Small nucleolar RNA snoR97: a 105-nucleotide RNA from Zizania palustris. The organism belongs to Zizania, within Eukaryota. Pairs were carried over by alignment from the consensus structure, which was predicted with WAR.
[Rfam]
RNA sequence: AGUUUCUGAUUUGCUGGGAGGCUGAAAAAGCUCGGAGAUUGUGUGUUGACAUCAGCUUCGUCUCUUGAUGCUGUGAGAUGGGAGUUAAAUUACAGCACAAAAUUC
Numbered sequence: 001a002g003u004u005u006c007u008g009a010u011u012u013g014c015u016g017g018g019a020g021g022c023u024g025a026a027a028a029a030g031c032u033c034g035g036a037g038a039u040u041g042u043g044u045g046u047u048g049a050c051a052u053c054a055g056c057u058u059c060g061u062c063u064c065u066u067g068a069u070g071c072u073g074u075g076a077g078a079u080g081g082g083a084g085u086u087a088a089a090u091u092a093c094a095g096c097a098c099a100a101a102a103u104u105c
Base pairs, nucleotide, nucleotide: 042099043098044097045096046095047094048093054086055085056084057083058082059081061078062077063076064075